[Rfam]
RNA sequence: CGGAAAGAGAGGGUUUCAAACCCUCGGUACGAAAAACCCGUACAACGGAUUAG
Numbered sequence: 001c002g003g004a005a006a007g008a009g010a011g012g013g014u015u016u017c018a019a020a021c022c023c024u025c026g027g028u029a030c031g032a033a034a035a036a037c038c039c040g041u042a043c044a045a046c047g048g049a050u051u052a053g
Stems, first nucleotide, its partner, number of pairs: 009025005027043005
RNA: Plastid-psbl-rps4 3UTR RNA